[Rfam]
RNA: mir-146 microRNA precursor family
RNA sequence: CUGGCUGCUUGGCUUUGAGAACUGAAUUCCAUAGGCGUUAAAGCAUCCAAAAAUGCCCUAUGGAUUCAGUUCUGCAGUUGGGCAGCAAAUA
Numbered sequence: 001c002u003g004g005c006u007g008c009u010u011g012g013c014u015u016u017g018a019g020a021a022c023u024g025a026a027u028u029c030c031a032u033a034g035g036c037g038u039u040a041a042a043g044c045a046u047c048c049a050a051a052a053a054u055g056c057c058c059u060a061u062g063g064a065u066u067c068a069g070u071u072c073u074g075c076a077g078u079u080g081g082g083c084a085g086c087a088a089a090u091a
Stems, first nucleotide, its partner, number of pairs: 008082002011079003018073008034057003